[Rfam]
RNA sequence: AUCCCUCCGCGCCGGGGUUAUGGCGCGACCUCCCUGUUGGACUUGGCCCGGGCUCUGCCCGGGCCUUUUUU
Numbered sequence: 001a002u003c004c005c006u007c008c009g010c011g012c013c014g015g016g017g018u019u020a021u022g023g024c025g026c027g028a029c030c031u032c033c034c035u036g037u038u039g040g041a042c043u044u045g046g047c048c049c050g051g052g053c054u055c056u057g058c059c060c061g062g063g064c065c066u067u068u069u070u071u
Stems, first nucleotide, its partner, number of pairs: 008027006045065008
Annotation
Shown here is a 71-nucleotide RNA sequence from Algicella marina, a member of the family "Singlet oxygen resistance RNA X". Pairs were carried over by alignment from the consensus structure. The family has 8 seed sequences and 528 matches in Rfam 15.1. About the family: SorX (RSs2461)like SorY is a singlet oxygen induced sRNA that counteracts oxidative stress by targeting mRNA for a transporter in Rhodobacter.